[Rfam]
RNA sequence: GCCGCUGACAACGGCGGACUUAUGCGGAAAACCAACCGCGUAGACCUAGAACGUCAAACUUAAGGAGAAAAAAAUG
Numbered sequence: 001g002c003c004g005c006u007g008a009c010a011a012c013g014g015c016g017g018a019c020u021u022a023u024g025c026g027g028a029a030a031a032c033c034a035a036c037c038g039c040g041u042a043g044a045c046c047u048a049g050a051a052c053g054u055c056a057a058a059c060u061u062a063a064g065g066a067g068a069a070a071a072a073a074a075u076g
Base pairs, nucleotide, nucleotide: 001015002014003013004012021042022041023040024039025038026037027036043055044054045053

freshwater-2 RNA: a 76-nucleotide sequence.